This 95-nucleotide sequence from Salvia splendens belongs to the Rfam family "Small nucleolar RNA R11/Z151".
The family's consensus secondary structure was predicted with PFOLD.
Taxonomically the source falls in core Calosphace (Eukaryota, Gunneridae, lamiids, Nepetoideae).
RNA sequence: UGGCUUAUGAUGAAAGACUAAUUAUCUUAGCGGAUUUCAGUGAGAUUAUGAUUUCAUUAUAAUCCGUGAUCUGAUUGUUACACACACUGAAGCCU
Numbered sequence: 001u002g003g004c005u006u007a008u009g010a011u012g013a014a015a016g017a018c019u020a021a022u023u024a025u026c027u028u029a030g031c032g033g034a035u036u037u038c039a040g041u042g043a044g045a046u047u048a049u050g051a052u053u054u055c056a057u058u059a060u061a062a063u064c065c066g067u068g069a070u071c072u073g074a075u076u077g078u079u080a081c082a083c084a085c086a087c088u089g090a091a092g093c094c095u
Base pairs, nucleotide, nucleotide: 002094003093004092005091